[Rfam]
RNA sequence: AAAGGAGGAAUCCAAAGGGAUAGCAUGAUCCAAAAUUAGGGUAAAAAUUUUUUUAAAAAUAAAAAUAAAGGAUCAAUGCGAUCCCUUUGGAUCCCUCCUC
Numbered sequence: 001a002a003a004g005g006a007g008g009a010a011u012c013c014a015a016a017g018g019g020a021u022a023g024c025a026u027g028a029u030c031c032a033a034a035a036u037u038a039g040g041g042u043a044a045a046a047a048u049u050u051u052u053u054u055a056a057a058a059a060u061a062a063a064a065a066u067a068a069a070g071g072a073u074c075a076a077u078g079c080g081a082u083c084c085c086u087u088u089g090g091a092u093c094c095c096u097c098c099u100c
Stems, first nucleotide, its partner, number of pairs: 003099004008094001010092012023079003026075006
A member of the RNA family "mir-393 microRNA precursor family" from Gossypium aridum, 100 nucleotides long. The family has 27 seed sequences and 1,052 matches in Rfam 15.1. A reference for the family is Kruszka et al. (2012), "Role of microRNAs and other sRNAs of plants in their changing environments", J Plant Physiol. NCBI's taxonomy places the organism under Eukaryota, Embryophyta, Magnoliopsida, rosids, Gossypium. A search with the family's covariance model found it, with a score of 68 bits.